[Rfam]
RNA sequence: CGGUCGAGUAGAAGCGGUCAGUGCCGGUGGACGGCAUGGGGCAUUGCUCUUGCG
Numbered sequence: 001c002g003g004u005c006g007a008g009u010a011g012a013a014g015c016g017g018u019c020a021g022u023g024c025c026g027g028u029g030g031a032c033g034g035c036a037u038g039g040g041g042c043a044u045u046g047c048u049c050u051u052g053c054g
Base pairs, nucleotide, nucleotide: 006049007048008047009046010045015039018041019040021037022036023035024034025033026032
Dot-bracket structure: .....(((((....[..((.((((((.....)))))).]))...))))).....

This 54-nucleotide RNA from Pseudomonas sp. VLB120 belongs to the Rfam family "Xanthine riboswitch aptamer (NMT1 RNA)". The family's consensus secondary structure is taken from published work. For this family Rfam cites "A bacterial riboswitch class senses xanthine and uric acid to regulate genes associated with purine oxidation" (Yu and Breaker, RNA, 2020). Rfam links the family to the GO term purine nucleobase binding.